A member of the RNA family "Translational regulator of tfoXVC" from Vibrio astriarenae, 103 nucleotides long. Rfam classes the family as a small RNA. A reference for the family is Yamamoto et al. (2011), "Identification of a chitin-induced small RNA that regulates translation of the tfoX gene, encoding a positive regulator of natural competence in Vibrio cholerae", J Bacteriol.
RNA sequence: AUUCCAGAGGUGUUGUGUCAUACGAUGCAACACUCCGGCAGCAAGCGAAGGUGUCAUUGACACCCGUGGUAUAGUCCCCCCGGCUAUACCACGUUCUUUUUUU
Numbered sequence: 001a002u003u004c005c006a007g008a009g010g011u012g013u014u015g016u017g018u019c020a021u022a023c024g025a026u027g028c029a030a031c032a033c034u035c036c037g038g039c040a041g042c043a044a045g046c047g048a049a050g051g052u053g054u055c056a057u058u059g060a061c062a063c064c065c066g067u068g069g070u071a072u073a074g075u076c077c078c079c080c081c082g083g084c085u086a087u088a089c090c091a092c093g094u095u096c097u098u099u100u101u102u103u
Base pairs, nucleotide, nucleotide: 009034010033011032012031013030014029015028016027017026018025038046039045050064051063052062053061054060055059065093066092067091068090069089070088071087072086073085074084075083076082
Dot-bracket structure: ........((((((((((......))))))))))...((.....))...((((((...))))))((((((((((((.....))))))))))))..........